[Rfam]
Rfam assigns this 86-nucleotide RNA from Rivibacter subsaxonicus to the family "SucA RNA motif". Gene Ontology term of the family: regulation of translation. The match comes from Rfam's covariance-model search (60 bits). Taxonomically the source falls in Rivibacter (Bacteria, Pseudomonadati, Betaproteobacteria, Burkholderiales). A reference for the family is Weinberg et al. (2007), "Identification of 22 candidate structured RNAs in bacteria using the CMfinder comparative genomics pipeline", Nucleic Acids Res.
RNA sequence: UCGCUUGUCCGCCAGCCGGUGUAGCCGAAAAGCGGAAGGUUCAGCAACCAGCCAUGAGCCCCGGAAACCUGGGCGAAAGGUCAGCG
Numbered sequence: 001u002c003g004c005u006u007g008u009c010c011g012c013c014a015g016c017c018g019g020u021g022u023a024g025c026c027g028a029a030a031a032g033c034g035g036a037a038g039g040u041u042c043a044g045c046a047a048c049c050a051g052c053c054a055u056g057a058g059c060c061c062c063g064g065a066a067a068c069c070u071g072g073g074c075g076a077a078a079g080g081u082c083a084g085c086g
Stems, first nucleotide, its partner, number of pairs: 002086003008036005017027004038049004051081003058074004063069002